[Rfam]
Background: Rfam assigns this 80-nucleotide RNA sequence from Branchiostoma lanceolatum to the family "mir-2060 microRNA precursor family". Its family is annotated with miRNA-mediated post-transcriptional gene silencing and RISC complex in the Gene Ontology. A search with the family's covariance model found it, with a score of 60 bits. Pairs were carried over by alignment from the consensus structure, which was predicted with RNAalifold.
RNA sequence: GUGUGUGGGGGUGGUGUUCAGCGCCAAGGACAGGUCUGUGUGAGGAUGGUGUUCGGCACCAAGGACAAGCCUGUAUGCCU
Dot-bracket structure: .(((.......(((((((.(((((((.(.(((....))).).....))))))).)))))))...))).............